RNA sequence: AAAAGGUAAAAGAGGGCCAAGCGGGUGUGUUCACGUCAUGGCCCCUGUCAGAAGCUCGCCUCUGCGAAUCCUGCU
Numbered sequence: 001a002a003a004a005g006g007u008a009a010a011a012g013a014g015g016g017c018c019a020a021g022c023g024g025g026u027g028u029g030u031u032c033a034c035g036u037c038a039u040g041g042c043c044c045c046u047g048u049c050a051g052a053a054g055c056u057c058g059c060c061u062c063u064g065c066g067a068a069u070c071c072u073g074c075u
Stems, first nucleotide, its partner, number of pairs: 014044005020075006027039003049064004054059001
The family of this 75-nucleotide RNA from Neodiprion lecontei is "Mammalian CPEB3 ribozyme". The source organism's lineage runs through Eukaryota, Metazoa, Panarthropoda, Neoptera and Neodiprion. It scores 57 bits against the family's covariance model. About the family: The mammalian CPEB3 ribozyme is a self cleaving RNA located in the second intron of the CPEB3 gene which belongs to a family of genes regulating messenger RNA polyadenylation. This ribozyme is highly conserved and found only in mammals. The CPEB3 ribozyme is structurally and biochemically related to the human hepatitis delta virus (HDV) ribozyme and the HDV ribozyme is proposed to have arisen from the human transcriptome. There is currently only one other known self cleaving ribozyme in mammals, the CoTC motif.